The record is a 125-nucleotide RNA sequence, which matches "DUF3800-I RNA" in Rfam.
RNA sequence: UAUAGCUACAGAUGAGUGGUUCAUACUGUUUACAUCUGGUUGUUGAUAAUAGAUAUUAAGCGUAUGUUAAGUACGCCAAGUCAGAUGGGAGAAUACCGGUUUAACUGGUGUUCUUUUUUUUAUAU
Numbered sequence: 001u002a003u004a005g006c007u008a009c010a011g012a013u014g015a016g017u018g019g020u021u022c023a024u025a026c027u028g029u030u031u032a033c034a035u036c037u038g039g040u041u042g043u044u045g046a047u048a049a050u051a052g053a054u055a056u057u058a059a060g061c062g063u064a065u066g067u068u069a070a071g072u073a074c075g076c077c078a079a080g081u082c083a084g085a086u087g088g089g090a091g092a093a094u095a096c097c098g099g100u101u102u103a104a105c106u107g108g109u110g111u112u113c114u115u116u117u118u119u120u121u122a123u124a125u
Stems, first nucleotide, its partner, number of pairs: 008029004012024003033087006043079003046056003060076006089115012